[Rfam]
RNA sequence: CCCUCUGUGAUGAUUGAACAGCAUGACUUUCGUUCUUCUGAGUCUGAUGAAGUCAAAUUGAUCUGUGCUGAGAGGG
Numbered sequence: 001c002c003c004u005c006u007g008u009g010a011u012g013a014u015u016g017a018a019c020a021g022c023a024u025g026a027c028u029u030u031c032g033u034u035c036u037u038c039u040g041a042g043u044c045u046g047a048u049g050a051a052g053u054c055a056a057a058u059u060g061a062u063c064u065g066u067g068c069u070g071a072g073a074g075g076g
Stems, first nucleotide, its partner, number of pairs: 001076003005072001

Shown here is a 76-nucleotide RNA sequence from Clupea harengus, a member of the family "Small nucleolar RNA SNORD59". The family's RNA type in Rfam is C/D-box small nucleolar RNA. Clan: SNORD59 clan. The base pairs follow the family's consensus structure, which was predicted with ILM. Gene Ontology terms of the family: nucleolus and RNA processing. The literature on the family includes a 2002 paper in Mol Cell Biol by Galardi et al., "Purified box C/D snoRNPs are able to reproduce site-specific 2'-O-methylation of target RNA in vitro".